A member of the RNA family "MIR396 microRNA precursor family" from Thalictrum thalictroides, 100 nucleotides long. The source organism's lineage runs through Eukaryota, Viridiplantae, Euphyllophyta, Spermatophyta and Thalictrum. It scores 85 bits against the family's covariance model. A reference for the family is Jones-Rhoades and Bartel (2004), "Computational identification of plant microRNAs and their targets, including a stress-induced miRNA", Mol Cell.
RNA sequence: UGUCAUGCUUUUCCACAGCUUUCUUGAACUUCUUUUCGAUAUGAUAUCGAUAUAUACAUAAAAGGUAGAAGUUCAAGGAAGCUGUGGGAAAACAUGGCGA
Numbered sequence: 001u002g003u004c005a006u007g008c009u010u011u012u013c014c015a016c017a018g019c020u021u022u023c024u025u026g027a028a029c030u031u032c033u034u035u036u037c038g039a040u041a042u043g044a045u046a047u048c049g050a051u052a053u054a055u056a057c058a059u060a061a062a063a064g065g066u067a068g069a070a071g072u073u074c075a076a077g078g079a080a081g082c083u084g085u086g087g088g089a090a091a092a093c094a095u096g097g098c099g100a
Base pairs, nucleotide, nucleotide: 003097004096005095006094007093013087014086015085017083018082019081020080021079022078024076025075026074027073029071030070031069032068033067